[Rfam]
RNA sequence: AAGGCGGUAUCCGGGGCUGCUCGGAACUGCACUUUUGAAGAUGGAUAUAGAUUGAAGCAAUACAAGCAAAUAACAUACUGCAUGGACAGAUCUGUGGAUUCUGCUCUGAGCCGAAAGGACCGAGACAGAAGG
Numbered sequence: 001a002a003g004g005c006g007g008u009a010u011c012c013g014g015g016g017c018u019g020c021u022c023g024g025a026a027c028u029g030c031a032c033u034u035u036u037g038a039a040g041a042u043g044g045a046u047a048u049a050g051a052u053u054g055a056a057g058c059a060a061u062a063c064a065a066g067c068a069a070a071u072a073a074c075a076u077a078c079u080g081c082a083u084g085g086a087c088a089g090a091u092c093u094g095u096g097g098a099u100u101c102u103g104c105u106c107u108g109a110g111c112c113g114a115a116a117g118g119a120c121c122g123a124g125a126c127a128g129a130a131g132g
Base pairs, nucleotide, nucleotide: 001034002033003032004030005029006028007027008026010025011024012023013022014021015020101128102127103126104124105123106122108120111118112117

Record summary: A member of the RNA family "pan motif" from Paenibacillus algicola, 132 nucleotides long. NCBI's taxonomy places the organism under Bacteria, Bacillati, Bacillota, Caryophanales, Paenibacillus.